[Rfam]
The record is a 41-nucleotide RNA sequence from Anolis carolinensis, which matches "MAT2A 3'UTR stem loop D" in Rfam. Rfam's curators put it in the seed alignment.
RNA sequence: UUUGGGACCGGGUGUGAGUACAGAGAAGCCCUUGUCUCAAA
Number, nucleotide and partner (000 for none) at each position: 001u041002u040003u039004g038005g037006g036007a035008c034009c000010g031011g030012g029013u028014g000015u000016g000017a000018g000019u000020a000021c000022a000023g000024a000025g000026a000027a000028g013029c012030c011031c010032u000033u000034g008035u007036c006037u005038c004039a003040a002041a001